[Rfam]
RNA: tRNA
Organism: Moritella sp. Urea-trap-13
RNA sequence: GCGGUACUAGCUCAGUUGGUAGAGCGCAACCUUGCCAAGGUUGAGGUCAAGAGUUCGAGCCUCUUGUACCGCU
Numbered sequence: 001g002c003g004g005u006a007c008u009a010g011c012u013c014a015g016u017u018g019g020u021a022g023a024g025c026g027c028a029a030c031c032u033u034g035c036c037a038a039g040g041u042u043g044a045g046g047u048c049a050a051g052a053g054u055u056c057g058a059g060c061c062u063c064u065u066g067u068a069c070c071g072c073u
Base pairs, nucleotide, nucleotide: 001072002071003070004069005068006067007066010025011024012023013022027043028042029041030040031039049065050064051063052062053061
Dot-bracket structure: (((((((..((((........)))).(((((.......))))).....(((((.......)))))))))))).